[Rfam]
RNA: SAM riboswitch aptamer (S box leader)
RNA sequence: UUCUUAUCGAGAGAGGUCGAGGGUAUGGCCCUGUGACACCUCAGCAACCUGUAUGAUUACAAGGUGCUAAUUCCAGCAAGUUGAAAAACUUGAAAGAUAAGAA
Numbered sequence: 001u002u003c004u005u006a007u008c009g010a011g012a013g014a015g016g017u018c019g020a021g022g023g024u025a026u027g028g029c030c031c032u033g034u035g036a037c038a039c040c041u042c043a044g045c046a047a048c049c050u051g052u053a054u055g056a057u058u059a060c061a062a063g064g065u066g067c068u069a070a071u072u073c074c075a076g077c078a079a080g081u082u083g084a085a086a087a088a089c090u091u092g093a094a095a096g097a098u099a100a101g102a103a
Stems, first nucleotide, its partner, number of pairs: 001103008013042005021031003026075003043068004048064002050061004072095001077092006